[Rfam]
RNA: Purine riboswitch aptamer
RNA sequence: UGAAAUAAAAAAAUCAUUCCUCGUAUAUAUCUUGAAUAUGGCAAGAAGUCUCUACCAGAAACCGAUAAUUUCUGACUACGGGCGAAGGUGCAAAGACG
Numbered sequence: 001u002g003a004a005a006u007a008a009a010a011a012a013a014u015c016a017u018u019c020c021u022c023g024u025a026u027a028u029a030u031c032u033u034g035a036a037u038a039u040g041g042c043a044a045g046a047a048g049u050c051u052c053u054a055c056c057a058g059a060a061a062c063c064g065a066u067a068a069u070u071u072c073u074g075a076c077u078a079c080g081g082g083c084g085a086a087g088g089u090g091c092a093a094a095g096a097c098g
Stems, first nucleotide, its partner, number of pairs: 018084001020082006030046005056074006